Rfam assigns this 64-nucleotide RNA sequence from Trifolium medium to the family "MIR5291 microRNA precursor family".
The base pairs follow the family's consensus structure, which was predicted with RNAalifold.
The match comes from Rfam's covariance-model search (55 bits).

RNA sequence: GAUGGAUUGAAUCCAAUCCAUUAACAAGUUUAUUGUAUAAUGGAUGGAUUGAAUGGAUUUAAAA
Numbered sequence: 001g002a003u004g005g006a007u008u009g010a011a012u013c014c015a016a017u018c019c020a021u022u023a024a025c026a027a028g029u030u031u032a033u034u035g036u037a038u039a040a041u042g043g044a045u046g047g048a049u050u051g052a053a054u055g056g057a058u059u060u061a062a063a064a
Base pairs, nucleotide, nucleotide: 004060005059006058007057008056011054012053014051015050016049017048018047019046020045021044022043026038028036029035